[Rfam]
The family of this 118-nucleotide RNA from Cupriavidus sp. YR651 is "Betaproteobacteria-1 RNA". A search with the family's covariance model found it, with a score of 81 bits. It is annotated as a small RNA. Pairs were carried over by alignment from the consensus structure, which is taken from published work. The organism belongs to Cupriavidus, within Bacteria.
RNA sequence: CGCCUCAUUGGUCGGCUUGAUACGGCAGCGAUGAGGGGAGACUGGUCUCUGUGGGGAAAGAGCUGAGAUGACCAGCACGCGGGCGAAGAUAGCGCACGGCUCGAGAUGACUGUCGGAC
Numbered sequence: 001c002g003c004c005u006c007a008u009u010g011g012u013c014g015g016c017u018u019g020a021u022a023c024g025g026c027a028g029c030g031a032u033g034a035g036g037g038g039a040g041a042c043u044g045g046u047c048u049c050u051g052u053g054g055g056g057a058a059a060g061a062g063c064u065g066a067g068a069u070g071a072c073c074a075g076c077a078c079g080c081g082g083g084c085g086a087a088g089a090u091a092g093c094g095c096a097c098g099g100c101u102c103g104a105g106a107u108g109a110c111u112g113u114c115g116g117a118c
Stems, first nucleotide, its partner, number of pairs: 001038001003036008025052004043074005060102004076098001088114005